[Rfam]
RNA sequence: ACUCAACAAGUAUCAAUUCAAAAAGGUGAGUUCAAAUUGUAAAAGCAUGCCGCGCCUCUGAUUAGUUUCAGACCAAAGGAAUAGCGGACCCUUGAUCAGUUUGGUAGCCUUAAACCUGUCUAAUGGAGUUU
Dot-bracket structure: ......................(((((......(((((....(((....((((..............................))))...)))....)))))....)))))....................